RNA sequence: UUCUUCCAGUCCCUUGUCAUUCUCUCGCCCGGUGUAUUUUAACAACUGGACGGAGAACUGAUAAGGGCUUGUGGGAA
Dot-bracket structure: ..........(((((((((((((((..((..................))..)))))).)))))))))..........